[Rfam]
RNA sequence: AGGCAGCCUCUUCGCGGGCUCCAGUGGCGAAGAAGGUGUUAAACUGCUCGUAGAUUAAAUGUCUUUUGCUCUUCAGACUUGCUGAGAUGUCUUUGAAGCUGGUCUAGUAAGCUCAAGUACAUU
Numbered sequence: 001a002g003g004c005a006g007c008c009u010c011u012u013c014g015c016g017g018g019c020u021c022c023a024g025u026g027g028c029g030a031a032g033a034a035g036g037u038g039u040u041a042a043a044c045u046g047c048u049c050g051u052a053g054a055u056u057a058a059a060u061g062u063c064u065u066u067u068g069c070u071c072u073u074c075a076g077a078c079u080u081g082c083u084g085a086g087a088u089g090u091c092u093u094u095g096a097a098g099c100u101g102g103u104c105u106a107g108u109a110a111g112c113u114c115a116a117g118u119a120c121a122u123u
Base pairs, nucleotide, nucleotide: 002040003039004038005037007036008035009033010032011031012030013029014028015027017025063117064116065115068112069111070110075105076104077103078102079101081099082098083097086091

Annotation:
Shown here is a 123-nucleotide RNA from Morella rubra, a member of the family "Small nucleolar RNA snoR77". NCBI's taxonomy places the organism under Eukaryota, Streptophytina, Tracheophyta, Gunneridae, Morella. The family's RNA type in Rfam is H/ACA-box small nucleolar RNA. Rfam 15.1 lists 649 matches to the family in 221 species. The base pairs follow the family's consensus structure, which was predicted with WAR. The match comes from Rfam's covariance-model search (121 bits).